A member of the RNA family "Small nucleolar RNA SNORA84" from Serilophus lunatus, 134 nucleotides long.
The family has 28 seed sequences and 757 matches in Rfam 15.1.
It scores 87 bits against the family's covariance model.
[Rfam]
RNA sequence: GCCCCGUGGUUGCUGGAGGCUGCUGUGUGUGCAGUCGCUCCGGUGGGUGCAGAGGGGCCGACAGUGACACUGUGGGUGAUGCGUGGGCUCUGUGACCCCUGAGCAGGUCCCACAGCCCGGCCACAGUCACAUCU
Dot-bracket structure: ((((..((.((((((((.(((((.......)))).)..)))))))).)).....))))...........(.((((.(...((((((..(((((.........)))))..)))).))..).)))).)........